[Rfam]
Nucleotides: 123
Stems, first nucleotide, its partner, number of pairs: 002119004007114001013104007024090002032048005039081001049068006071087004
Number, partner (000 for none) and nucleotide at each position: 001000u002119u003118g004117g005116c006000c007114a008000a009000u010000g011000c012000a013104g014103g015102u016101g017100g018099a019098a020000c021000u022000a023000c024090a025089u026000c027000g028000u029000g030000u031000c032048g033047c034046g035045g036044g037000u038000u039081c040000g041000a042000a043000u044036c045035c046034c047033g048032c049068c050067g051066u052065g053064g054063g055000g056000c057000a058000c059000a060000g061000c062000c063054c064053c065052c066051g067050c068049g069000u070000a071087g072086c073085u074084c075000a076000g077000c078000c079000c080000g081039g082000u083000a084074g085073a086072g087071c088000a089025g090024u091000u092000a093000a094000c095000c096000c097000g098019u099018u100017u101016c102015a103014c104013c105000c106000c107000a108000c109000c110000c111000u112000u113000g114007u115000c116005g117004c118003c119002a120000g121000g122000g123000c
This 123-nucleotide sequence from Profundibacter amoris belongs to the Rfam family "Y RNA-like". Rfam's curators write: In Deinococcus radiodurans Rsr is tethered via Y RNA to the exoribonuclease PNPase and channels single-stranded RNA into the PNPase cavity. Rsr and Y RNA enhance degradation of structured RNAs by PNPase. This role could be conserved, as Rsr and ncRNAs called YrlA and YrlB (Y RNA like) also associate with PNPase in an evolutionary distant bacterium Salmonella Typhimurium. The source organism's lineage runs through Bacteria, Alphaproteobacteria, Rhodobacterales, Paracoccaceae and Profundibacter.